A member of the RNA family "isrO Hfq binding RNA" from Klebsiella pneumoniae, 186 nucleotides long. Pairs were carried over by alignment from the consensus structure, which was predicted with RNAalifold. It is one of the family's seed sequences. NCBI's taxonomy places the organism under Bacteria, Pseudomonadota, Gammaproteobacteria, Klebsiella pneumoniae complex, Klebsiella pneumoniae subsp. pneumoniae.
RNA sequence: GCGCGCGGUCUGCGGCAGGCAGAAAUUCAUAUUUGCGCCACGCGGCGCGGCGGCCUCUCCUCGCUAUUGCGCGUUGCCGUUCACAGAGCUGCCUCCAGGGCUUGUUUUGGUAAUGCCUUUCUCCCAUUUAUGGGCUACCCUAGUGGCCUGAGUACAUGACCCGGCGGGUUUGUGCCGGGUCAUUUU
Numbered sequence: 001g002c003g004c005g006c007g008g009u010c011u012g013c014g015g016c017a018g019g020c021a022g023a024a025a026u027u028c029a030u031a032u033u034u035g036c037g038c039c040a041c042g043c044g045g046c047g048c049g050g051c052g053g054c055c056u057c058u059c060c061u062c063g064c065u066a067u068u069g070c071g072c073g074u075u076g077c078c079g080u081u082c083a084c085a086g087a088g089c090u091g092c093c094u095c096c097a098g099g100g101c102u103u104g105u106u107u108u109g110g111u112a113a114u115g116c117c118u119u120u121c122u123c124c125c126a127u128u129u130a131u132g133g134g135c136u137a138c139c140c141u142a143g144u145g146g147c148c149u150g151a152g153u154a155c156a157u158g159a160c161c162c163g164g165c166g167g168g169u170u171u172g173u174g175c176c177g178g179g180u181c182a183u184u185u186u
Base pairs, nucleotide, nucleotide: 001155003153004152006150007149014148015147016146018111020109021108022107023106024105026100027099028098029090032087033086034085035084037082038073041071042070043069044068045067049065050064051063052062128143129142130141132140133139134138156183157182158181159180160179161178162177163176164175165174